[Rfam]
RNA sequence: GACUCUCUCAGGUUCUAGCACGCCCUCGGAAACGCUAGAAUCUUUAGGCCGGCGCGAGCCGGUCUUCUUUUU
Numbered sequence: 001g002a003c004u005c006u007c008u009c010a011g012g013u014u015c016u017a018g019c020a021c022g023c024c025c026u027c028g029g030a031a032a033c034g035c036u037a038g039a040a041u042c043u044u045u046a047g048g049c050c051g052g053c054g055c056g057a058g059c060c061g062g063u064c065u066u067c068u069u070u071u072u
Base pairs, nucleotide, nucleotide: 010043011042012041013040014039015038016037017036018035019034023029024028046065047064048063049062050061051060052059053058
Rfam assigns this 72-nucleotide RNA from Paraburkholderia phenazinium to the family "Burkholderia sRNA 54". Its family is annotated with bacterial biofilm matrix in the Gene Ontology. Rfam's curators write: Identified by RNA-seq, RACE and Northern blot. Strongly expressed in biofilm. A reference for the family is Sass et al. (2017), "Identification of small RNAs abundant in Burkholderia cenocepacia biofilms reveal putative regulators with a potential role in carbon and iron metabolism", Sci Rep. Rfam 15.1 lists 91 matches to the family in 60 species.